[Rfam]
RNA: T-box leader
Nucleotides: 218
Base pairs, nucleotide, nucleotide: 007099008098015094016093017092018091026083027082028081029080030079037073038072039071048070049069050068051067052066053065101125102124103123104122105121106120107119127138128137129136164177165176166175167174168173182215183214184213185212193211194210195209196208197207198206199205
Number, partner (000 for none) and nucleotide at each position: 001000u002000u003000a004000a005000a006000g007099g008098c009000g010000a011000g012000g013000a014000a015094g016093a017092g018091a019000a020000a021000u022000a023000g024000u025000a026083a027082a028081u029080u030079g031000a032000g033000g034000a035000a036000c037073u038072u039071c040000u041000u042000a043000a044000g045000a046000g047000a048070g049069u050068c051067g052066g053065u054000g055000g056000g057000u058000g059000g060000u061000g062000u063000g064000a065053a066052c067051c068050g069049a070048u071039g072038a073037a074000g075000u076000g077000a078000c079030c080029a081028g082027u083026u084000g085000a086000a087000u088000c089000c090000a091018u092017c093016u094015c095000a096000g097000a098008g099007c100000c101125a102124u103123u104122g105121g106120c107119u108000g109000a110000a111000u112000g113000a114000a115000a116000g117000u118000a119107g120106g121105u122104c123103a124102a125101u126000u127138c128137g129136g130000a131000g132000g133000c134000a135000u136129c137128c138127g139000u140000u141000a142000u143000c144000a145000u146000g147000u148000a149000u150000g151000g152000a153000g154000a155000u156000g157000a158000u159000u160000a161000g162000u163000a164177a165176u166175u167174a168173g169000c170000u171000a172000g173168c174167u175166a176165a177164u178000a179000a180000c181000u182215a183214g184213g185212g186000u187000g188000g189000c190000a191000a192000c193211g194210c195209g196208g197207a198206a199205g200000g201000a202000u203000a204000g205199c206198u207197u208196u209195c210194g211193u212185c213184c214183c215182u216000u217000a218000u